[Rfam]
RNA sequence: GACUUCGGAUGCCGUGAGGCCUCUGUCCGCUCAGCGGCCCUGGUGCACCUUCCCCGGCACCAGGUCCUCAGCGGGCGGGCGGGGACCUGACGGCAUCCGUUUUCUGUA
Numbered sequence: 001g002a003c004u005u006c007g008g009a010u011g012c013c014g015u016g017a018g019g020c021c022u023c024u025g026u027c028c029g030c031u032c033a034g035c036g037g038c039c040c041u042g043g044u045g046c047a048c049c050u051u052c053c054c055c056g057g058c059a060c061c062a063g064g065u066c067c068u069c070a071g072c073g074g075g076c077g078g079g080c081g082g083g084g085a086c087c088u089g090a091c092g093g094c095a096u097c098c099g100u101u102u103u104c105u106g107u108a
Stems, first nucleotide, its partner, number of pairs: 010095006018087002021084012034069001036067002039064008

Description: Shown here is a 108-nucleotide RNA from Amycolatopsis sacchari, a member of the family "mraW RNA". By type it is a cis-regulatory element. Lineage of the source: Bacteria > Bacillati > Actinomycetes > Pseudonocardiales > Amycolatopsis.